The record is an 85-nucleotide RNA from Protea cynaroides, which matches "Small nucleolar RNA R44/J54/Z268 family" in Rfam. It is annotated as a C/D-box small nucleolar RNA. Lineage of the source: Eukaryota > Viridiplantae > Embryophyta > Euphyllophyta > Protea. Gene Ontology terms of the family: nucleolus and RNA processing.
RNA sequence: AGAGCAGGUGAUGAUAAACAGACAGGGACAUCAGUACUUCUCUGGAGGAUGUUGACUUCUGUCUUGGGAAUCUCUCUGAUGCUCA
Numbered sequence: 001a002g003a004g005c006a007g008g009u010g011a012u013g014a015u016a017a018a019c020a021g022a023c024a025g026g027g028a029c030a031u032c033a034g035u036a037c038u039u040c041u042c043u044g045g046a047g048g049a050u051g052u053u054g055a056c057u058u059c060u061g062u063c064u065u066g067g068g069a070a071u072c073u074c075u076c077u078g079a080u081g082c083u084c085a
Base pairs, nucleotide, nucleotide: 002084003083004082005081006080